The family of this 71-nucleotide RNA from Mycobacterium asiaticum is "tRNA". About the family: Transfer RNA (tRNA) molecules are approximately 80 nucleotides in length. Pairs were carried over by alignment from the consensus structure, which is taken from published work. Its family is annotated with triplet codon-amino acid adaptor activity in the Gene Ontology.

RNA sequence: GCGGGUGUGGCUGAGUGGCUAGGCAGCGGCCUGCAAAGCCGUGGACACGGGUUCGAAUCCCGUCACUCGCU
Numbered sequence: 001g002c003g004g005g006u007g008u009g010g011c012u013g014a015g016u017g018g019c020u021a022g023g024c025a026g027c028g029g030c031c032u033g034c035a036a037a038g039c040c041g042u043g044g045a046c047a048c049g050g051g052u053u054c055g056a057a058u059c060c061c062g063u064c065a066c067u068c069g070c071u
Stems, first nucleotide, its partner, number of pairs: 001070007010024003026042005047063005